This 71-nucleotide sequence belongs to the Rfam family "2dG-II purine riboswitch aptamer". The base pairs follow the family's consensus structure, which is taken from published work.

RNA sequence: UAACCUUGUAACCGCUGGGAUUGGCUGGCGGGAAUCCACCGUUCGACCGUAAUCGGGCGUGACCAAGGGAA
Numbered sequence: 001u002a003a004c005c006u007u008g009u010a011a012c013c014g015c016u017g018g019g020a021u022u023g024g025c026u027g028g029c030g031g032g033a034a035u036c037c038a039c040c041g042u043u044c045g046a047c048c049g050u051a052a053u054c055g056g057g058c059g060u061g062a063c064c065a066a067g068g069g070a071a
Stems, first nucleotide, its partner, number of pairs: 001071001004068005012031007041058006
Dot-bracket structure: (..(((((...(((((((......))))))).........((((((......)))))).....)))))..)